[Rfam]
RNA sequence: CGGUGGGACACAUCCCCCCAACGGGAUGCAAACUAUCUGUGAGGAUAGAUCAG
Numbered sequence: 001c002g003g004u005g006g007g008a009c010a011c012a013u014c015c016c017c018c019c020a021a022c023g024g025g026a027u028g029c030a031a032a033c034u035a036u037c038u039g040u041g042a043g044g045a046u047a048g049a050u051c052a053g
Stems, first nucleotide, its partner, number of pairs: 011028006033048006
Rfam assigns this 53-nucleotide RNA sequence from Aureimonas sp. Leaf454 to the family "serC leader". The literature on the family includes a 2005 paper in Genome Biol by Corbino et al., "Evidence for a second class of S-adenosylmethionine riboswitches and other regulatory RNA motifs in alpha-proteobacteria". Rfam classes the family as a cis-regulatory leader. NCBI's taxonomy places the organism under Bacteria, Pseudomonadota, Alphaproteobacteria, Hyphomicrobiales, Aureimonas. This family is a putative regulatory RNA structure that is found upstream of the serC-serA operon in some alpha-proteobacteria. The final stem of the structure overlaps the ribosome binding site of the serC reading frame. Gene Ontology term of the family: regulation of gene expression.